[Rfam]
RNA sequence: UCACCAACCUGCGGGUGCUCAAUGAGUUUCAAAUUGGGCUGAGAAAACACCGCUUAAACCUGAUUCAGGAUAAUCCCUGCGUAGGAAAGGACAUCACAUGACAU
Numbered sequence: 001u002c003a004c005c006a007a008c009c010u011g012c013g014g015g016u017g018c019u020c021a022a023u024g025a026g027u028u029u030c031a032a033a034u035u036g037g038g039c040u041g042a043g044a045a046a047a048c049a050c051c052g053c054u055u056a057a058a059c060c061u062g063a064u065u066c067a068g069g070a071u072a073a074u075c076c077c078u079g080c081g082u083a084g085g086a087a088a089g090g091a092c093a094u095c096a097c098a099u100g101a102c103a104u
Base pairs, nucleotide, nucleotide: 008090009089010088011053012052013051014050016047017039018038019037020036021035022034023033059085060084061083062082066079067078068077069076
Dot-bracket structure: .......(((((((.((((((((.........))))))).......)..)))).....((((...((((......))))..))))..)))..............
A member of the RNA family "TPP riboswitch aptamer (THI element)" from Hydromonas duriensis, 104 nucleotides long.